[Rfam]
RNA sequence: UAAGGAGCAAUAACCUAUUUCUUGUUCUAGCAAGGGGGUUAUUGCUCCUUUAUUUUU
Number, nucleotide and partner (000 for none) at each position: 001u000002a050003a049004g048005g047006a046007g045008c044009a043010a042011u041012a040013a039014c038015c000016u000017a000018u000019u000020u000021c034022u033023u032024g031025u000026u000027c000028u000029a000030g000031c024032a023033a022034g021035g000036g000037g000038g014039u013040u012041a011042u010043u009044g008045c007046u006047c005048c004049u003050u002051u000052a000053u000054u000055u000056u000057u000

Background:
The family of this 57-nucleotide RNA from Lysionotus pauciflorus is "Plastid-psbA-3 3UTR RNA". Plastid psbA-3 is a non-coding RNA (ncRNA) present in plastids. It was identified in inverted repeat sequences in the 3 prime untranslate region (3UTR) of photosystem II quinone-binding protein (psbA). The base pairs follow the family's consensus structure, which was predicted with LocARNA. Its Rfam clan is "Plastid-psbA 3UTR RNA clan".